The record is a 111-nucleotide sequence from Lacticaseibacillus thailandensis, which matches "23S methyl RNA motif" in Rfam. By type it is a cis-regulatory element. A search with the family's covariance model found it, with a score of 61 bits. For this family Rfam cites "Identification of 22 candidate structured RNAs in bacteria using the CMfinder comparative genomics pipeline" (Weinberg et al., Nucleic Acids Res, 2007).
RNA sequence: UAAUCUCCGACUUUUAUCAGGUGCGUGGUUGCCGGUUUGAUAAAAGUUUGCGACUAAGGUCCACUAGCGUAUCAUCUCGCCGUGCUUAGCACCGAGGUGGUCCGCUUUUUU
Numbered sequence: 001u002a003a004u005c006u007c008c009g010a011c012u013u014u015u016a017u018c019a020g021g022u023g024c025g026u027g028g029u030u031g032c033c034g035g036u037u038u039g040a041u042a043a044a045a046g047u048u049u050g051c052g053a054c055u056a057a058g059g060u061c062c063a064c065u066a067g068c069g070u071a072u073c074a075u076c077u078c079g080c081c082g083u084g085c086u087u088a089g090c091a092c093c094g095a096g097g098u099g100g101u102c103c104g105c106u107u108u109u110u111u
Stems, first nucleotide, its partner, number of pairs: 002055001004053002007050001009048014066106004071101009082092003

Description: Its family is annotated with regulation of gene expression in the Gene Ontology.